23S methyl RNA motif: a 105-nucleotide RNA from Enterococcus faecium.
RNA sequence: UUUUCAUUGGUUUUUAUCAGGUUCCUGUUCUGAUAAAAGUUAGUGAGAAGAGCUUCACUAACGUAACGACUCGCAGUGACUGACACCGAGUUGAUACGUUUUUUU
Numbered sequence: 001u002u003u004u005c006a007u008u009g010g011u012u013u014u015u016a017u018c019a020g021g022u023u024c025c026u027g028u029u030c031u032g033a034u035a036a037a038a039g040u041u042a043g044u045g046a047g048a049a050g051a052g053c054u055u056c057a058c059u060a061a062c063g064u065a066a067c068g069a070c071u072c073g074c075a076g077u078g079a080c081u082g083a084c085a086c087c088g089a090g091u092u093g094a095u096a097c098g099u100u101u102u103u104u105u
Stems, first nucleotide, its partner, number of pairs: 002048018060100006067093007076086003

The literature on the family includes a 2007 paper in Nucleic Acids Res by Weinberg et al., "Identification of 22 candidate structured RNAs in bacteria using the CMfinder comparative genomics pipeline".
Rfam classes the family as a cis-regulatory element.